[Rfam]
RNA sequence: GUGAAGACUGCAGGAGAGAGGUUUUUAACCUACUUAUUACAAGUUUGUUAAAAUAACCCGCCGAAGAAGUGAAUCUUUCAGGUGCAUAGCUCUUAGAAGCUUGCAAGGACUGUAGUUGGAGG
Numbered sequence: 001g002u003g004a005a006g007a008c009u010g011c012a013g014g015a016g017a018g019a020g021g022u023u024u025u026u027a028a029c030c031u032a033c034u035u036a037u038u039a040c041a042a043g044u045u046u047g048u049u050a051a052a053a054u055a056a057c058c059c060g061c062c063g064a065a066g067a068a069g070u071g072a073a074u075c076u077u078u079c080a081g082g083u084g085c086a087u088a089g090c091u092c093u094u095a096g097a098a099g100c101u102u103g104c105a106a107g108g109a110c111u112g113u114a115g116u117u118g119g120a121g122g
Stems, first nucleotide, its partner, number of pairs: 006117008020058004060083003063079002067077003
Shown here is a 122-nucleotide RNA from Vibrio viridaestus, a member of the family "Glycine riboswitch aptamer". NCBI's taxonomy places the organism under Bacteria, Pseudomonadati, Pseudomonadota, Vibrionaceae, Vibrio. This family represents the bacterial glycine riboswitch. The match comes from Rfam's covariance-model search (38 bits).